Nuclear RNase P: a 317-nucleotide RNA sequence from Acanthosepion pharaonis. Taxonomically the source falls in Acanthosepion (Eukaryota, Metazoa, Eumetazoa, Sepiida). The family's consensus secondary structure is taken from published work. From the family's description: Ribonuclease P (RNase P) is a ubiquitous endoribonuclease, found in archaea, bacteria and eukarya as well as chloroplasts and mitochondria. Its best characterised activity is the generation of mature 5'-ends of tRNAs by cleaving the 5'-leader elements of precursor-tRNAs. Cellular RNase Ps are ribonucleoproteins. RNA from bacterial RNase Ps retains its catalytic activity in the absence of the protein subunit, i.e. it is a ribozyme. A search with the family's covariance model found it, with a score of 147 bits. Its family is annotated with ribonuclease P complex, tRNA processing and ribonuclease P activity in the Gene Ontology.
[Rfam]
RNA sequence: GCAGUAGUAAGCUCGUUUCAGGGAUUACAUGCAGGUACAUUUGGUUACCUCGCGAAUCCUUGGGAAGGUCUGAGACAAAGGUCGGUUCAUGUCCUAGGCGGACGCUCCUAUAAUUGACGGGGGUGGGUCACCAGCCACGUGGUUUCCUGCCCCGGGGUGUCAAGGGCAAAGGAUGGCGAGGCCCUGCUGGACUUCGCUUGAUGCUAAGCCCCGGGGUUUACGGUUGGAAGAGGCCCAUGGCCAGCUGGGUGUAGCGAGAUAAACGAGGUGGGUACCUGGUGCUGCCCAUAACUCAAUUCAGACUACUCUACUUCUGU
Numbered sequence: 001g002c003a004g005u006a007g008u009a010a011g012c013u014c015g016u017u018u019c020a021g022g023g024a025u026u027a028c029a030u031g032c033a034g035g036u037a038c039a040u041u042u043g044g045u046u047a048c049c050u051c052g053c054g055a056a057u058c059c060u061u062g063g064g065a066a067g068g069u070c071u072g073a074g075a076c077a078a079a080g081g082u083c084g085g086u087u088c089a090u091g092u093c094c095u096a097g098g099c100g101g102a103c104g105c106u107c108c109u110a111u112a113a114u115u116g117a118c119g120g121g122g123g124u125g126g127g128u129c130a131c132c133a134g135c136c137a138c139g140u141g142g143u144u145u146c147c148u149g150c151c152c153c154g155g156g157g158u159g160u161c162a163a164g165g166g167c168a169a170a171g172g173a174u175g176g177c178g179a180g181g182c183c184c185u186g187c188u189g190g191a192c193u194u195c196g197c198u199u200g201a202u203g204c205u206a207a208g209c210c211c212c213g214g215g216g217u218u219u220a221c222g223g224u225u226g227g228a229a230g231a232g233g234c235c236c237a238u239g240g241c242c243a244g245c246u247g248g249g250u251g252u253a254g255c256g257a258g259a260u261a262a263a264c265g266a267g268g269u270g271g272g273u274a275c276c277u278g279g280u281g282c283u284g285c286c287c288a289u290a291a292c293u294c295a296a297u298u299c300a301g302a303c304u305a306c307u308c309u310a311c312u313u314c315u316g317u
Base pairs, nucleotide, nucleotide: 001317002316003315004314007311008310009309012267013266014265015264016263017262018261020061021060022059023058024057033050034049035048036047037046038044070301071300072299073298074297080242081241082240083239090104091103092102093101094100105122106121107120108119123238124237125236126235127234128233129232143223144222268289269288270287271286272285273284274283